[Rfam]
RNA sequence: GACGAUCGCGCGGGAGAGCGCGCCGGCCCAUCGCGAAUCGCCAUCGGGUGAUUUGCCGGGCAGGCGCCGCCGAAGGAGCAACCGCCCCGGAAUCUCUCAGGCCAAAGGACCGCGGCCGAUCG
Numbered sequence: 001g002a003c004g005a006u007c008g009c010g011c012g013g014g015a016g017a018g019c020g021c022g023c024c025g026g027c028c029c030a031u032c033g034c035g036a037a038u039c040g041c042c043a044u045c046g047g048g049u050g051a052u053u054u055g056c057c058g059g060g061c062a063g064g065c066g067c068c069g070c071c072g073a074a075g076g077a078g079c080a081a082c083c084g085c086c087c088c089g090g091a092a093u094c095u096c097u098c099a100g101g102c103c104a105a106a107g108g109a110c111c112g113c114g115g116c117c118g119a120u121c122g
Stems, first nucleotide, its partner, number of pairs: 009114005020067004069102003072098002076096003082090002
RNA: Glycine riboswitch aptamer
Organism: Sphingomonas sp. MM-1